[Rfam]
RNA: Enterobacterial sRNA STnc240
RNA sequence: UUCGAGUAGUGCAGAAUAUGCGCCCUGCAAAAUAGAGCAAUAACCGACGCUGACGCGCCGGUUAUUUUUUGC
Numbered sequence: 001u002u003c004g005a006g007u008a009g010u011g012c013a014g015a016a017u018a019u020g021c022g023c024c025c026u027g028c029a030a031a032a033u034a035g036a037g038c039a040a041u042a043a044c045c046g047a048c049g050c051u052g053a054c055g056c057g058c059c060g061g062u063u064a065u066u067u068u069u070u071g072c
Stems, first nucleotide, its partner, number of pairs: 011021002041064006048057002